[Rfam]
RNA: Purine riboswitch aptamer
RNA sequence: AAAUAAUUGAAUAAUAGUAUUCGUAUAUCCUCAGAAAUAUGGUCUGAACGUUUCUACCCGGCUCCCAUCGUAAGAACCGGACUACGAUUUAAAUUAUAGCAGUG
Numbered sequence: 001a002a003a004u005a006a007u008u009g010a011a012u013a014a015u016a017g018u019a020u021u022c023g024u025a026u027a028u029c030c031u032c033a034g035a036a037a038u039a040u041g042g043u044c045u046g047a048a049c050g051u052u053u054c055u056a057c058c059c060g061g062c063u064c065c066c067a068u069c070g071u072a073a074g075a076a077c078c079g080g081a082c083u084a085c086g087a088u089u090u091a092a093a094u095u096a097u098a099g100c101a102g103u104g
Stems, first nucleotide, its partner, number of pairs: 019089001021087005031047005058080004063075002